[Rfam]
A member of the RNA family "Arthropod 7SK RNA" from Frieseomelitta varia, 304 nucleotides long. The family's RNA type in Rfam is non-coding RNA gene. Taxonomically the source falls in Frieseomelitta (Eukaryota, Metazoa, Endopterygota, Aculeata).

RNA sequence: GGAAGUGUGUGCUAGUGAUGGCACAGCUGAACAUUGAUCGCUAACGUAGAAAUAUGGCAGAUCUGCUCAGUGGGUGUUGUCACGUGGUCGCUUCAAGUAGCUUGUGUUCGGCUCCCGAUUGCGCGUGUAGGUUCGAGGUGUUUUAUUCACCUCGGAUUUGCACGCCUGCACGGUUGAGUCUUCACGUCGCUCCUCGAACUACCGCGAUUUCCAAAUUGGGGGGCAAUCGAAUAGGUCAGACGAGGUUAAAUUUGUCGCUUCCAUAUACAGGCACUGCAGAUAAGCAGUAUGCCAUGUUUUUUUU
Numbered sequence: 001g002g003a004a005g006u007g008u009g010u011g012c013u014a015g016u017g018a019u020g021g022c023a024c025a026g027c028u029g030a031a032c033a034u035u036g037a038u039c040g041c042u043a044a045c046g047u048a049g050a051a052a053u054a055u056g057g058c059a060g061a062u063c064u065g066c067u068c069a070g071u072g073g074g075u076g077u078u079g080u081c082a083c084g085u086g087g088u089c090g091c092u093u094c095a096a097g098u099a100g101c102u103u104g105u106g107u108u109c110g111g112c113u114c115c116c117g118a119u120u121g122c123g124c125g126u127g128u129a130g131g132u133u134c135g136a137g138g139u140g141u142u143u144u145a146u147u148c149a150c151c152u153c154g155g156a157u158u159u160g161c162a163c164g165c166c167u168g169c170a171c172g173g174u175u176g177a178g179u180c181u182u183c184a185c186g187u188c189g190c191u192c193c194u195c196g197a198a199c200u201a202c203c204g205c206g207a208u209u210u211c212c213a214a215a216u217u218g219g220g221g222g223g224c225a226a227u228c229g230a231a232u233a234g235g236u237c238a239g240a241c242g243a244g245g246u247u248a249a250a251u252u253u254g255u256c257g258c259u260u261c262c263a264u265a266u267a268c269a270g271g272c273a274c275u276g277c278a279g280a281u282a283a284g285c286a287g288u289a290u291g292c293c294a295u296g297u298u299u300u301u302u303u304u
Stems, first nucleotide, its partner, number of pairs: 001262007015083005027070003032065002036063004040058004270293003273288005